[Rfam]
RNA: glmS glucosamine-6-phosphate activated ribozyme aptamer
Organism: Oribacterium sp. C9
RNA sequence: AAUCUCUCGUUAGCGCCAGGACCGUAAUUGGUCGACGAGGAUGACAGUUAUCGAAAGACUCGGCGGAUGCUGUCACGGAAUUGUGAAUCGAAAGAGAAAAAAGAAAAAGCGGAAUCAAAACCGUAACAGAAAUUUUCUCACUCACUGAC
Numbered sequence: 001a002a003u004c005u006c007u008c009g010u011u012a013g014c015g016c017c018a019g020g021a022c023c024g025u026a027a028u029u030g031g032u033c034g035a036c037g038a039g040g041a042u043g044a045c046a047g048u049u050a051u052c053g054a055a056a057g058a059c060u061c062g063g064c065g066g067a068u069g070c071u072g073u074c075a076c077g078g079a080a081u082u083g084u085g086a087a088u089c090g091a092a093a094g095a096g097a098a099a100a101a102a103g104a105a106a107a108a109g110c111g112g113a114a115u116c117a118a119a120a121c122c123g124u125a126a127c128a129g130a131a132a133u134u135u136u137c138u139c140a141c142u143c144a145c146u147g148a149c
Stems, first nucleotide, its partner, number of pairs: 020033005042075005051063004076090003094139007109124004